[Rfam]
Record summary
The family of this 97-nucleotide part of an RNA from Haloglomus irregulare is "Archaeal large subunit ribosomal RNA". Pairs were carried over by alignment from the consensus structure, which is taken from published work. Taxonomically the source falls in Haloglomus (Archaea, Methanobacteriati, Methanobacteriota, Natronomonadaceae). It scores 2824 bits against the family's covariance model.
RNA sequence: GAUCGGGCACGAAAGGCCCGCAGGGAAACGACCUACCCGCGAGGGUACAGUAGGAGCCUUCGGGAGCCGCUGUCCGAUCGUACGUUUUGAAAAACGA
Numbered sequence: 001g002a003u004c005g006g007g008c009a010c011g012a013a014a015g016g017c018c019c020g021c022a023g024g025g026a027a028a029c030g031a032c033c034u035a036c037c038c039g040c041g042a043g044g045g046u047a048c049a050g051u052a053g054g055a056g057c058c059u060u061c062g063g064g065a066g067c068c069g070c071u072g073u074c075c076g077a078u079c080g081u082a083c084g085u086u087u088u089g090a091a092a093a094a095c096g097a
Base pairs, nucleotide, nucleotide: 001079002078003077004076005075006074007073008072009071015068016067019062020061022059023058024057029053034047035046036045037044038043083096084095085094